[Rfam]
RNA sequence: GCAGCGGUUUAGCUCAGUGGUUACUUCUAUUCACAACAAUAUUAGUUGAAUCUCCGGCCUCCGGGUCAGGAGUUCGAACCACGGGCGCUGUUCGCUGCUUUU
Numbered sequence: 001g002c003a004g005c006g007g008u009u010u011a012g013c014u015c016a017g018u019g020g021u022u023a024c025u026u027c028u029a030u031u032c033a034c035a036a037c038a039a040u041a042u043u044a045g046u047u048g049a050a051u052c053u054c055c056g057g058c059c060u061c062c063g064g065g066u067c068a069g070g071a072g073u074u075c076g077a078a079c080c081a082c083g084g085g086c087g088c089u090g091u092u093c094g095c096u097g098c099u100u101u102u
Stems, first nucleotide, its partner, number of pairs: 002097006012086004017082004025078003029074001
Rfam assigns this 102-nucleotide RNA from Perca flavescens to the family "Vault RNA". The family's RNA type in Rfam is non-coding RNA gene. Rfam's curators write: This family of RNAs are found as part of the enigmatic vault ribonucleoprotein complex. The complex consists of a major vault protein (MVP), two minor vault proteins (VPARP and TEP1), and several small untranslated RNA molecules. It has been suggested that the vault complex is involved in drug resistance. The family has 73 seed sequences and 2,873 matches in Rfam 15.1. The organism belongs to Perca, within Eukaryota.